RNA sequence: AAAAAGGGCUUCUGUCGUGAGUGGCACACGCAGAGCAGCUUGAAAGCUCUAUGUGCAGAAUCGACAUCAAGAGAUUUCGGAAUCAUUAUUUUUUGGUACUUGGGCAGCUGGUAAUUGUUGGUCCUGGUGCCUGC
Numbered sequence: 001a002a003a004a005a006g007g008g009c010u011u012c013u014g015u016c017g018u019g020a021g022u023g024g025c026a027c028a029c030g031c032a033g034a035g036c037a038g039c040u041u042g043a044a045a046g047c048u049c050u051a052u053g054u055g056c057a058g059a060a061u062c063g064a065c066a067u068c069a070a071g072a073g074a075u076u077u078c079g080g081a082a083u084c085a086u087u088a089u090u091u092u093u094u095g096g097u098a099c100u101u102g103g104g105c106a107g108c109u110g111g112u113a114a115u116u117g118u119u120g121g122u123c124c125u126g127g128u129g130c131c132u133g134c
Stems, first nucleotide, its partner, number of pairs: 008084001010082003013026005027055004032050005056079001058077005102132004107128005114122003
RNA: U11 spliceosomal RNA
Organism: Myotis brandtii